[Rfam]
RNA sequence: CGGGUUUACUCCUGGAUUUACCGUUUCGUCAGGCCGGAGCCCGACGUCGUUUUGGUGUCUGAUUCGGUACGAAUCGGGAGCACCAUCUGCGUAGGUUCAGGAGAUCGCUCUCCAGGGUUUAAGGCUUGCGCCACCUACGGUCUUGGAUAGCCCCCGCCAGGCAGGGACCCCAAUCUUUCGAGGCCGGCGGACGAGUCCGCCGG
Numbered sequence: 001c002g003g004g005u006u007u008a009c010u011c012c013u014g015g016a017u018u019u020a021c022c023g024u025u026u027c028g029u030c031a032g033g034c035c036g037g038a039g040c041c042c043g044a045c046g047u048c049g050u051u052u053u054g055g056u057g058u059c060u061g062a063u064u065c066g067g068u069a070c071g072a073a074u075c076g077g078g079a080g081c082a083c084c085a086u087c088u089g090c091g092u093a094g095g096u097u098c099a100g101g102a103g104a105u106c107g108c109u110c111u112c113c114a115g116g117g118u119u120u121a122a123g124g125c126u127u128g129c130g131c132c133a134c135c136u137a138c139g140g141u142c143u144u145g146g147a148u149a150g151c152c153c154c155c156g157c158c159a160g161g162c163a164g165g166g167a168c169c170c171c172a173a174u175c176u177u178u179c180g181a182g183g184c185c186g187g188c189g190g191a192c193g194a195g196u197c198c199g200c201c202g203g
Stems, first nucleotide, its partner, number of pairs: 002170006011161004022049002027046004032041003053085006059077007089157003094152004117148010185202006